[Rfam]
Nucleotides: 080
Stems, first nucleotide, its partner, number of pairs: 010025004016071003020067002045061006
Number, partner (000 for none) and nucleotide at each position: 001000c002000a003000a004000g005000u006000u007000u008000c009000c010025g011024g012023u013022a014000a015000u016071g017070g018069a019000u020067u021066c022013u023012g024011c025010c026000u027000g028000g029000c030000c031000a032000u033000g034000g035000u036000g037000g038000c039000c040000g041000a042000a043000c044000c045061g046060c047059u048058u049057c050056g051000c052000a053000g054000g055000a056050u057049g058048a059047a060046g061045c062000u063000g064000a065000u066021g067020a068000c069018u070017c071016c072000u073000a074000c075000u076000c077000a078000a079000c080000u

Fluoride riboswitch aptamer (crcB RNA motif): an 80-nucleotide RNA from Xaviernesmea oryzae. The source organism's lineage runs through Bacteria, Pseudomonadati, Pseudomonadota, Alphaproteobacteria and Xaviernesmea.